[Rfam]
RNA sequence: CGUCAUAGACACCGCGAGUGUGAAACCUCUGCGAAAAAUCGGCAGAUUUCUCGCAGAGGUUUC
Numbered sequence: 001c002g003u004c005a006u007a008g009a010c011a012c013c014g015c016g017a018g019u020g021u022g023a024a025a026c027c028u029c030u031g032c033g034a035a036a037a038a039u040c041g042g043c044a045g046a047u048u049u050c051u052c053g054c055a056g057a058g059g060u061u062u063c
Base pairs, nucleotide, nucleotide: 022063023062024061025060026059027058028057029056030055031054032053033052034051035049039045
Shown here is a 63-nucleotide RNA from Mycolicibacterium smegmatis, a member of the family "Mycobacterium sRNA Ms_IGR-8". A reference for the family is Li et al. (2013), "Identification of small RNAs in Mycobacterium smegmatis using heterologous Hfq", RNA. The family's RNA type in Rfam is small RNA. The pairing is the family consensus, mapped onto this sequence.